Rfam assigns this 121-nucleotide sequence from Molossus molossus to the family "Small nucleolar RNA SNORA32". Rfam classes the family as an H/ACA-box small nucleolar RNA. A search with the family's covariance model found it, with a score of 119 bits. Rfam's curators write: ACA32 is a member of the H/ACA class of snoRNA that guide the sites of modification of uridines to pseudouridines.

RNA sequence: UGGUCAUUUCCAAGGCUUGUAGAAUGCAGUUUCUCACUUGCUGUGGACAUGACCACAAAAUAUUUUCCCAUUAGGUUUUCUUUCUGCUACAUUGGUAUGAUUCAGCCUAUUGGGAGCAUUU
Numbered sequence: 001u002g003g004u005c006a007u008u009u010c011c012a013a014g015g016c017u018u019g020u021a022g023a024a025u026g027c028a029g030u031u032u033c034u035c036a037c038u039u040g041c042u043g044u045g046g047a048c049a050u051g052a053c054c055a056c057a058a059a060a061u062a063u064u065u066u067c068c069c070a071u072u073a074g075g076u077u078u079u080c081u082u083u084c085u086g087c088u089a090c091a092u093u094g095g096u097a098u099g100a101u102u103c104a105g106c107c108u109a110u111u112g113g114g115a116g117c118a119u120u121u
Stems, first nucleotide, its partner, number of pairs: 003053005010046003026041004067114004074107004085100001